[Rfam]
RNA: mir-957 microRNA precursor family
Organism: Lucilia cuprina
RNA sequence: AGGGCCUUAGCUUUGGGCGGGUUUUGGUGUAUAUGUUAUAAACCUAUUGAAACCGUCCAAAACUGAGGCCUUA
Numbered sequence: 001a002g003g004g005c006c007u008u009a010g011c012u013u014u015g016g017g018c019g020g021g022u023u024u025u026g027g028u029g030u031a032u033a034u035g036u037u038a039u040a041a042a043c044c045u046a047u048u049g050a051a052a053c054c055g056u057c058c059a060a061a062a063c064u065g066a067g068g069c070c071u072u073a
Stems, first nucleotide, its partner, number of pairs: 005068001007066004012061003016057004021053008